[Rfam]
RNA sequence: CUGUUAGAGGAAUGAUGUAUUACUAUAGGGCUCUUAAGAUGCUUUCCUUUCUCGAUACUGCAUCUGAGAUGGACAUAAGGG
Dot-bracket structure: ((.(((.....................................................................))).))